[Rfam]
RNA sequence: GAAAACUGAGGGCGGAACAGGCGGCCGCCACCGGAGAGCAUCAGCUCGAUUAGGAGAUGUGGGAUUGUCACCCCACCUUUUUC
Numbered sequence: 001g002a003a004a005a006c007u008g009a010g011g012g013c014g015g016a017a018c019a020g021g022c023g024g025c026c027g028c029c030a031c032c033g034g035a036g037a038g039c040a041u042c043a044g045c046u047c048g049a050u051u052a053g054g055a056g057a058u059g060u061g062g063g064a065u066u067g068u069c070a071c072c073c074c075a076c077c078u079u080u081u082u083c
Stems, first nucleotide, its partner, number of pairs: 001083005008077001011029005020069004031054001036047004059076005
The family of this 83-nucleotide RNA is "skipping-rope RNA". It is annotated as a small RNA.